[Rfam]
RNA sequence: GUUGUAAAUUUGAGGCCACAGAAGAAGCCCUUAUGGUGUGGCCAUGUCAGAUUCCAACAAAACUGUGAAUUCUGCU
Numbered sequence: 001g002u003u004g005u006a007a008a009u010u011u012g013a014g015g016c017c018a019c020a021g022a023a024g025a026a027g028c029c030c031u032u033a034u035g036g037u038g039u040g041g042c043c044a045u046g047u048c049a050g051a052u053u054c055c056a057a058c059a060a061a062a063c064u065g066u067g068a069a070u071u072c073u074g075c076u
Stems, first nucleotide, its partner, number of pairs: 014043004020076002023073004027039002048065003052061002

Shown here is a 76-nucleotide RNA from Alligator sinensis, a member of the family "Mammalian CPEB3 ribozyme".
The match comes from Rfam's covariance-model search (41 bits).
Pairs were carried over by alignment from the consensus structure, which is taken from published work.
Its family is annotated with RNA nuclease activity in the Gene Ontology.